[Rfam]
RNA: Plasmodium RNase_P
RNA sequence: CAAGGAAUGAGUUUAAGCUCAAAACAUCCUGCAAAUAUACAUACACGAAAUUAGAGAAAAAAGGGGGGAAGGAAAAAAAAAAAAAGGAAAAGGAAAUAUUAGUAUCCUUUUUCCUUUUUUUUUUUUUUUUUCCCUUUUUUUUUUUUUCUUUUCUUUGGUGUAAUUUUUUAAUACAGGAAGGAAGGUCUGAGAUGCUGGCAAAAAGAAAAAAUAAGAAAAAGAGAAGAUUGAAGGUGAGCUUUUUUUUUAAGCACACCUUUAUUAGCUUUUUUUUUUUUUUAUUUUAACAUUCUUUAUACGAAUUUUUGAGAAGAAAGUUAUUGUAAAAAUAUCAAUUGGCUACUAGAAAUUUCAAUUUUAUGUUUCCAUUGUGUUUUAUAUUAUUUUGAAAAUAGCCAAUAAGCAAGUAUACACUGGUGAGUUCGAUUUUUGAGGUUUUUCCAACUUUUCAAGAACCGGGAAUGCUUGUAUAUGUUUAUAUAUAUGCGUGCUCAUUUUGAUAUAACGGAAAAAUAACUUAAUUCAGACUACUCCUAAGUUCAUUCCAUCAC
Numbered sequence: 001c002a003a004g005g006a007a008u009g010a011g012u013u014u015a016a017g018c019u020c021a022a023a024a025c026a027u028c029c030u031g032c033a034a035a036u037a038u039a040c041a042u043a044c045a046c047g048a049a050a051u052u053a054g055a056g057a058a059a060a061a062a063g064g065g066g067g068g069a070a071g072g073a074a075a076a077a078a079a080a081a082a083a084a085a086g087g088a089a090a091a092g093g094a095a096a097u098a099u100u101a102g103u104a105u106c107c108u109u110u111u112u113c114c115u116u117u118u119u120u121u122u123u124u125u126u127u128u129u130u131u132c133c134c135u136u137u138u139u140u141u142u143u144u145u146u147u148c149u150u151u152u153c154u155u156u157g158g159u160g161u162a163a164u165u166u167u168u169u170a171a172u173a174c175a176g177g178a179a180g181g182a183a184g185g186u187c188u189g190a191g192a193u194g195c196u197g198g199c200a201a202a203a204a205g206a207a208a209a210a211a212u213a214a215g216a217a218a219a220a221g222a223g224a225a226g227a228u229u230g231a232a233g234g235u236g237a238g239c240u241u242u243u244u245u246u247u248u249a250a251g252c253a254c255a256c257c258u259u260u261a262u263u264a265g266c267u268u269u270u271u272u273u274u275u276u277u278u279u280u281a282u283u284u285u286a287a288c289a290u291u292c293u294u295u296a297u298a299c300g301a302a303u304u305u306u307u308g309a310g311a312a313g314a315a316a317g318u319u320a321u322u323g324u325a326a327a328a329a330u331a332u333c334a335a336u337u338g339g340c341u342a343c344u345a346g347a348a349a350u351u352u353c354a355a356u357u358u359u360a361u362g363u364u365u366c367c368a369u370u371g372u373g374u375u376u377u378a379u380a381u382u383a384u385u386u387u388g389a390a391a392a393u394a395g396c397c398a399a400u401a402a403g404c405a406a407g408u409a410u411a412c413a414c415u416g417g418u419g420a421g422u423u424c425g426a427u428u429u430u431u432g433a434g435g436u437u438u439u440u441c442c443a444a445c446u447u448u449u450c451a452a453g454a455a456c457c458g459g460g461a462a463u464g465c466u467u468g469u470a471u472a473u474g475u476u477u478a479u480a481u482a483u484a485u486g487c488g489u490g491c492u493c494a495u496u497u498u499g500a501u502a503u504a505a506c507g508g509a510a511a512a513a514u515a516a517c518u519u520a521a522u523u524c525a526g527a528c529u530a531c532u533c534c535u536a537a538g539u540u541c542a543u544u545c546c547a548u549c550a551c
Stems, first nucleotide, its partner, number of pairs: 004546012018434007027178005042162005048156001183529002187526005192410005198404002303316005332402001334400001336399006359380004435514007